[Rfam]
RNA sequence: GGAUUGAGAGGACGGAACGGGCAGCCGUCGCCCUUAGUUGGAGAUGCGGGAGUGUCGCCCCGCCUCAGUCC
Numbered sequence: 001g002g003a004u005u006g007a008g009a010g011g012a013c014g015g016a017a018c019g020g021g022c023a024g025c026c027g028u029c030g031c032c033c034u035u036a037g038u039u040g041g042a043g044a045u046g047c048g049g050g051a052g053u054g055u056c057g058c059c060c061c062g063c064c065u066c067a068g069u070c071c
Base pairs, nucleotide, nucleotide: 001071002070003069004068005067006066007065008064011029012028013027014026015025020056021055022054023053031041046063047062048061049060050059
Dot-bracket structure: ((((((((..(((((....[[[[.))))).(.........)....(((((..]]]]..)))))))))))))

Shown here is a 71-nucleotide sequence, a member of the family "skipping-rope RNA". The family's RNA type in Rfam is small RNA.